[Rfam]
RNA sequence: CCCGCCACUGUACUGGUCUUGUAAUGCGCCGGCCGGUACAGUCCAGAGGUGAGCUGACAGAAAAUGCCAACUUAGGAAACAGAGUUAUUCUUCUUGUGGGUAACUUUGUGCCGAAGUCUGGGAACAGGC
Numbered sequence: 001c002c003c004g005c006c007a008c009u010g011u012a013c014u015g016g017u018c019u020u021g022u023a024a025u026g027c028g029c030c031g032g033c034c035g036g037u038a039c040a041g042u043c044c045a046g047a048g049g050u051g052a053g054c055u056g057a058c059a060g061a062a063a064a065u066g067c068c069a070a071c072u073u074a075g076g077a078a079a080c081a082g083a084g085u086u087a088u089u090c091u092u093c094u095u096g097u098g099g100g101u102a103a104c105u106u107u108g109u110g111c112c113g114a115a116g117u118c119u120g121g122g123a124a125c126a127g128g129c
Base pairs, nucleotide, nucleotide: 005049006048008046009045010044018036019035021033022031065122067120069119070117071116072115073114075112076111080108081107082106083105084104085103088100089099090098
A member of the RNA family "Small nucleolar RNA SNORA65" from Anhinga anhinga, 129 nucleotides long. About the family: U65 belongs to the H/ACA class of snoRNAs which are thought to guide the sites of modification of uridines to pseudouridines. Its family is annotated with nucleolus and RNA processing in the Gene Ontology. The family's RNA type in Rfam is H/ACA-box small nucleolar RNA. Clan: SNORA65 clan. The base pairs follow the family's consensus structure, which was predicted with RNAalifold. The organism belongs to Anhinga, within Eukaryota. Rfam 15.1 lists 1,089 matches to the family in 619 species.